[Rfam]
RNA sequence: GCGCGCCCCACGCCGAGUCCGCAUCUCUGCGGAGCCGGGGACCCAAGGUUCCAUCACGGGGUGAAUCGGUUCGAGCACGAACCGUAGGGCGUCUUCCACGCCCGAACCCGUCAGCUAACCCGGUAGGCGUCAUGGAAGCUGAG
Numbered sequence: 001g002c003g004c005g006c007c008c009c010a011c012g013c014c015g016a017g018u019c020c021g022c023a024u025c026u027c028u029g030c031g032g033a034g035c036c037g038g039g040g041a042c043c044c045a046a047g048g049u050u051c052c053a054u055c056a057c058g059g060g061g062u063g064a065a066u067c068g069g070u071u072c073g074a075g076c077a078c079g080a081a082c083c084g085u086a087g088g089g090c091g092u093c094u095u096c097c098a099c100g101c102c103c104g105a106a107c108c109c110g111u112c113a114g115c116u117a118a119c120c121c122g123g124u125a126g127g128c129g130u131c132a133u134g135g136a137a138g139c140u141g142a143g
Base pairs, nucleotide, nucleotide: 011129012128013127014126018033019032020031021030022029034124035123036122037121038120039119044058059109060108061107067084068083069082070081087103088102089101090100
Source information:
Shown here is a 143-nucleotide RNA sequence from Actinomadura rubteroloni, a member of the family "c-di-AMP riboswitch aptamer (ydaO/yuaA leader)". The match comes from Rfam's covariance-model search (84 bits). Lineage of the source: Bacteria > Actinomycetes > Streptosporangiales > Thermomonosporaceae > Actinomadura.